[Rfam]
RNA sequence: UAAAUUUGCGUUUUACCUAUUCGUAUAUCUUUGGCAAUACGGGCCAGAGGUCUCUACAAGGAACCGAAAAUUCCUGGCUACGAAUGGACGGUUUUACCGU
Numbered sequence: 001u002a003a004a005u006u007u008g009c010g011u012u013u014u015a016c017c018u019a020u021u022c023g024u025a026u027a028u029c030u031u032u033g034g035c036a037a038u039a040c041g042g043g044c045c046a047g048a049g050g051u052c053u054c055u056a057c058a059a060g061g062a063a064c065c066g067a068a069a070a071u072u073c074c075u076g077g078c079u080a081c082g083a084a085u086g087g088a089c090g091g092u093u094u095u096a097c098c099g100u
Stems, first nucleotide, its partner, number of pairs: 018086008029049007059075005
RNA: Purine riboswitch aptamer